[Rfam]
RNA sequence: GUCUCAGUGAAGAGCUCUAGACCAUAGGAAGUGCCGUAUGACACUGUAAACAGCAGCUGCUUCUCUGCCUGCUGCAAGUGCCCAUUCUCUUAUAAUAACCUCUGUGGUUUUAUCUGGAUGGAAUUACCCAUUUGUACCAGCUUGAUUCAGCUGUGUGCUUGAUUUUAAACGGGUCUCUGAGGGAU
Number, nucleotide and partner (000 for none) at each position: 001g185002u184003c183004u182005c181006a000007g000008u000009g000010a000011a000012g000013a000014g000015c000016u000017c000018u000019a000020g000021a000022c000023c000024a000025u000026a000027g000028g000029a000030a000031g000032u000033g000034c000035c000036g000037u000038a000039u000040g000041a000042c000043a000044c000045u000046g000047u000048a000049a000050a000051c000052a000053g000054c000055a000056g000057c000058u000059g000060c000061u000062u000063c000064u000065c000066u000067g000068c000069c000070u000071g000072c000073u136074g135075c134076a133077a132078g131079u130080g129081c000082c121083c120084a119085u118086u117087c116088u000089c000090u000091u000092a113093u112094a111095a110096u000097a109098a108099c107100c106101u000102c000103u000104g000105u000106g100107g099108u098109u097110u095111u094112a093113u092114c000115u000116g087117g086118a085119u084120g083121g082122a000123a000124u000125u000126a000127c000128c000129c080130a079131u078132u077133u076134g075135u074136a073137c000138c000139a000140g000141c000142u000143u000144g000145a000146u000147u000148c000149a000150g000151c000152u000153g000154u000155g000156u000157g000158c000159u000160u000161g000162a000163u000164u000165u000166u000167a000168a000169a000170c000171g000172g000173g000174u000175c000176u000177c000178u000179g000180a000181g005182g004183g003184a002185u001

The record is a 185-nucleotide sequence from Hordeum vulgare, which matches "Small nucleolar RNA Z112" in Rfam. Rfam 15.1 lists 427 matches to the family in 103 species. Its Rfam clan is "SNORD49 clan". It scores 150 bits against the family's covariance model.